[Rfam]
RNA sequence: UGGUAGAUGCACCCUGGUUAGGCCCUAGAGUUUACUCUAGGGCAUUUUUUC
Numbered sequence: 001u002g003g004u005a006g007a008u009g010c011a012c013c014c015u016g017g018u019u020a021g022g023c024c025c026u027a028g029a030g031u032u033u034a035c036u037c038u039a040g041g042g043c044a045u046u047u048u049u050u051c
Stems, first nucleotide, its partner, number of pairs: 002013003022043009
Rfam assigns this 51-nucleotide RNA from Anabaenopsis elenkinii to the family "Nitrogen stress-induced RNA 1". Rfam classes the family as a small RNA.